RNA sequence: GCGAAGAGUGCGUGUACGGACUCUGCCCGAGGUGGAUGCUCUGGUGUACUUCCCCGACAUCAGAAACCUGCCUCGGACAGGGCUCUAUACGCACUCAAUUUUUAU
Numbered sequence: 001g002c003g004a005a006g007a008g009u010g011c012g013u014g015u016a017c018g019g020a021c022u023c024u025g026c027c028c029g030a031g032g033u034g035g036a037u038g039c040u041c042u043g044g045u046g047u048a049c050u051u052c053c054c055c056g057a058c059a060u061c062a063g064a065a066a067c068c069u070g071c072c073u074c075g076g077a078c079a080g081g082g083c084u085c086u087a088u089a090c091g092c093a094c095u096c097a098a099u100u101u102u103u104a105u
Stems, first nucleotide, its partner, number of pairs: 010092007018085002021082005027076009037066001040064008
The family of this 105-nucleotide RNA sequence from Corynebacterium camporealensis is "mraW RNA". Rfam classes the family as a cis-regulatory element. The base pairs follow the family's consensus structure, which is taken from published work. The source organism's lineage runs through Bacteria, Actinomycetota, Actinomycetes, Mycobacteriales and Corynebacterium. The match comes from Rfam's covariance-model search (63 bits).